[Rfam]
RNA sequence: UCACUCUGGAGAGUGGUGACUGGCUGCGACCAGGGCACCCGCCGACGGGGCAAGCAGACAGCACGAUCUGCACAAUCUCUCAGGCACAAGACAGAGCGGGAGGA
Numbered sequence: 001u002c003a004c005u006c007u008g009g010a011g012a013g014u015g016g017u018g019a020c021u022g023g024c025u026g027c028g029a030c031c032a033g034g035g036c037a038c039c040c041g042c043c044g045a046c047g048g049g050g051c052a053a054g055c056a057g058a059c060a061g062c063a064c065g066a067u068c069u070g071c072a073c074a075a076u077c078u079c080u081c082a083g084g085c086a087c088a089a090g091a092c093a094g095a096g097c098g099g100g101a102g103g104a
Stems, first nucleotide, its partner, number of pairs: 001099002004096005015039004041085003044081002048079003054073001